[Rfam]
The family of this 37-nucleotide sequence from Candidatus Thiodictyon syntrophicum is "CRISPR RNA direct repeat element".
It scores 48 bits against the family's covariance model.
RNA sequence: GCAUCGCCCGGCCAAUUGGCCGGGCGCGGAUUGAAAC
Numbered sequence: 001g002c003a004u005c006g007c008c009c010g011g012c013c014a015a016u017u018g019g020c021c022g023g024g025c026g027c028g029g030a031u032u033g034a035a036a037c
Stems, first nucleotide, its partner, number of pairs: 005026009